[Rfam]
Nucleotides: 074
Base pairs, nucleotide, nucleotide: 012037013036017032018031019030020029022027040068041067042066043065045064046063047062048059049058050057
Number, partner (000 for none) and nucleotide at each position: 001000c002000a003000a004000u005000c006000g007000c008000a009000c010000g011000g012037g013036c014000a015000c016000a017032c018031c019030c020029g021000c022027c023000g024000c025000a026000a027022g028000a029020c030019g031018g032017g033000g034000u035000c036013g037012c038000a039000a040068a041067g042066g043065c044000a045064c046063g047062g048059g049058a050057c051000c052000c053000u054000c055000a056000g057050g058049u059048c060000a061000g062047c063046c064045g065043g066042c067041c068040u069000a070000c071000c072000g073000a074000u